[Rfam]
RNA sequence: GGAGCCACAGGAAGGCAUCCCAAUUCAGCCUUAGGAAAAGAAACCUGCCACAGGAGUCCUGGAGAUUAGCAACUGUCCUAAUGACUUA
Numbered sequence: 001g002g003a004g005c006c007a008c009a010g011g012a013a014g015g016c017a018u019c020c021c022a023a024u025u026c027a028g029c030c031u032u033a034g035g036a037a038a039a040g041a042a043a044c045c046u047g048c049c050a051c052a053g054g055a056g057u058c059c060u061g062g063a064g065a066u067u068a069g070c071a072a073c074u075g076u077c078c079u080a081a082u083g084a085c086u087u088a
Stems, first nucleotide, its partner, number of pairs: 002087003006083002010079002013076001015074001018071001020069001022067004029062002038060001040058002044054004
RNA: mir-9014 microRNA precursor family